[Rfam]
RNA: Connexin-43 internal ribosome entry site (IRES)
RNA sequence: AGCUUUUGGGAGGUAUCAGCACUUUUCUUUCAUUAGAGGGAAGACGUGAGGAAAGUACCAGCAGCAGCAGACAUUUAAACUUUAAAUAGACAGGUCUGAGUGCCUGAGCUUACUUUUUUCAUUUUACUUCAUCUUCCAAGGAGUUCAAUCACUUGGCGUGCCUACUUCACUUCUUUUAAGCGAAGGAGUAAGUGAAACAACAUU
Numbered sequence: 001a002g003c004u005u006u007u008g009g010g011a012g013g014u015a016u017c018a019g020c021a022c023u024u025u026u027c028u029u030u031c032a033u034u035a036g037a038g039g040g041a042a043g044a045c046g047u048g049a050g051g052a053a054a055g056u057a058c059c060a061g062c063a064g065c066a067g068c069a070g071a072c073a074u075u076u077a078a079a080c081u082u083u084a085a086a087u088a089g090a091c092a093g094g095u096c097u098g099a100g101u102g103c104c105u106g107a108g109c110u111u112a113c114u115u116u117u118u119u120c121a122u123u124u125u126a127c128u129u130c131a132u133c134u135u136c137c138a139a140g141g142a143g144u145u146c147a148a149u150c151a152c153u154u155g156g157c158g159u160g161c162c163u164a165c166u167u168c169a170c171u172u173c174u175u176u177u178a179a180g181c182g183a184a185g186g187a188g189u190a191a192g193u194g195a196a197a198c199a200a201c202a203u204u
Base pairs, nucleotide, nucleotide: 002020003019004018007015008014029143030142031141033139034138036136037135038134039133040130041129042128043127048123049122051120053118054117055116069097070096071095072094074092098113100111102109153200154199155198159194160193161192165186166185167184168182170180171179172178